This 280-nucleotide RNA sequence from Octodon degus belongs to the Rfam family "Mason-Pfizer monkey virus packaging signal".
The base pairs follow the family's consensus structure, which was predicted with PFOLD.
Rfam links the family to the GO term viral genome packaging.
It is annotated as a cis-regulatory element.
It scores 93 bits against the family's covariance model.
On this family, see Mustafa et al., Virus Res 2004: "Mutational analysis of the predicted secondary RNA structure of the Mason-Pfizer monkey virus packaging signal".
Rfam's curators write: This family represents a group of sequences that are related to the Mason-Pfizer monkey virus (MPMV) packaging signal. The packaging signal is located in the 5' UTR and is required for specific RNA encapsidation.

RNA sequence: UGGUGCCCAGCAUGGGGCACCUGGUAUGGAGGAUUCAGCGAAGGACCCGUCCGAGAGAACCGGCAAGACAGAAAGUAAGAGGCCUGCACCGCAGUUGCCUGCUGCGACGUCUGAACCUCGGUAAGCAGGCAGAGCCCCUCCCCCUUCCCUUCGGCAAUGGGACAGGCAUUAAGUGAACAUGAGACAUUUGUAGAAAGUUUGAGCAAAGCAUUAAAGGCACGAGGAGUAAAGGUUAAAAUUAAGGAUUUGUGUCAAUAUUUUGAAUAUAUUAAACAAGUUU
Numbered sequence: 001u002g003g004u005g006c007c008c009a010g011c012a013u014g015g016g017g018c019a020c021c022u023g024g025u026a027u028g029g030a031g032g033a034u035u036c037a038g039c040g041a042a043g044g045a046c047c048c049g050u051c052c053g054a055g056a057g058a059a060c061c062g063g064c065a066a067g068a069c070a071g072a073a074a075g076u077a078a079g080a081g082g083c084c085u086g087c088a089c090c091g092c093a094g095u096u097g098c099c100u101g102c103u104g105c106g107a108c109g110u111c112u113g114a115a116c117c118u119c120g121g122u123a124a125g126c127a128g129g130c131a132g133a134g135c136c137c138c139u140c141c142c143c144c145u146u147c148c149c150u151u152c153g154g155c156a157a158u159g160g161g162a163c164a165g166g167c168a169u170u171a172a173g174u175g176a177a178c179a180u181g182a183g184a185c186a187u188u189u190g191u192a193g194a195a196a197g198u199u200u201g202a203g204c205a206a207a208g209c210a211u212u213a214a215a216g217g218c219a220c221g222a223g224g225a226g227u228a229a230a231g232g233u234u235a236a237a238a239u240u241a242a243g244g245a246u247u248u249g250u251g252u253c254a255a256u257a258u259u260u261u262g263a264a265u266a267u268a269u270u271a272a273a274c275a276a277g278u279u280u
Stems, first nucleotide, its partner, number of pairs: 006032002012027003038050003082122003086116001087113001090106005130165001132163001135161003170213003173209002220262005226256002230248005